[Rfam]
RNA sequence: CUCGAGUUAAUCCGUCAGCGAGGUAUAGAGUUCCUAUGCGUUCGGAUAAAAUAUUCCAUAGGAACUUCAUACCGUGCUCUUGGAUUGCUUGG
Number, nucleotide and partner (000 for none) at each position: 001c000002u000003c000004g000005a000006g000007u000008u000009a000010a000011u000012c083013c082014g081015u000016c000017a078018g077019c076020g075021a000022g073023g072024u071025a070026u069027a000028g067029a066030g065031u064032u063033c062034c061035u060036a059037u058038g000039c000040g000041u000042u000043c000044g000045g000046a000047u000048a000049a000050a000051a000052u000053a000054u000055u000056c000057c000058a037059u036060a035061g034062g033063a032064a031065c030066u029067u028068c000069a026070u025071a024072c023073c022074g000075u020076g019077c018078u017079c000080u000081u014082g013083g012084a000085u000086u000087g000088c000089u000090u000091g000092g000

This 92-nucleotide sequence from Aedes aegypti belongs to the Rfam family "mir-276 microRNA precursor family". The match comes from Rfam's covariance-model search (78 bits). On this family, see Skalsky et al., BMC Genomics 2010: "Identification of microRNAs expressed in two mosquito vectors, Aedes albopictus and Culex quinquefasciatus". The family's consensus secondary structure was predicted with RNAalifold.